[Rfam]
RNA sequence: GCAAUGUACUUGAACAGGAUCUGUUCUGUAGGUCGUACACUCUUCUGUAUCUACGAAUACAGAUGACUCGUCAAACCUGGAUGAUGAGUGGAGUCUCUCGUCUCAGAGCACGAAUGCCAGGCAGGCAGAAGUUUCGGCAUCCGUCAGCCGUCCGAUGAACGCACUCCUCAGUCUCGGCUGAGGGGUAAUGGGACGGGAGCGCUCUGACAGGUC
Numbered sequence: 001g002c003a004a005u006g007u008a009c010u011u012g013a014a015c016a017g018g019a020u021c022u023g024u025u026c027u028g029u030a031g032g033u034c035g036u037a038c039a040c041u042c043u044u045c046u047g048u049a050u051c052u053a054c055g056a057a058u059a060c061a062g063a064u065g066a067c068u069c070g071u072c073a074a075a076c077c078u079g080g081a082u083g084a085u086g087a088g089u090g091g092a093g094u095c096u097c098u099c100g101u102c103u104c105a106g107a108g109c110a111c112g113a114a115u116g117c118c119a120g121g122c123a124g125g126c127a128g129a130a131g132u133u134u135c136g137g138c139a140u141c142c143g144u145c146a147g148c149c150g151u152c153c154g155a156u157g158a159a160c161g162c163a164c165u166c167c168u169c170a171g172u173c174u175c176g177g178c179u180g181a182g183g184g185g186u187a188a189u190g191g192g193a194c195g196g197g198a199g200c201g202c203u204c205u206g207a208c209a210g211g212u213c
Stems, first nucleotide, its partner, number of pairs: 001036002003033001005031001012026006041066002044063001046061005075212005095199011108162002120149003125144002128141002131138002164185009
Rfam assigns this 213-nucleotide sequence from Chara braunii to the family "Plant small nucleolar RNA U3". The family has 24 seed sequences and 3,759 matches in Rfam 15.1. The family's consensus secondary structure is taken from published work. A search with the family's covariance model found it, with a score of 98 bits. Rfam links the family to the GO terms nucleolus and RNA processing. From the family's description: Small nucleolar RNAs (snoRNAs) are involved in the processing and modification of rRNA in the nucleolus.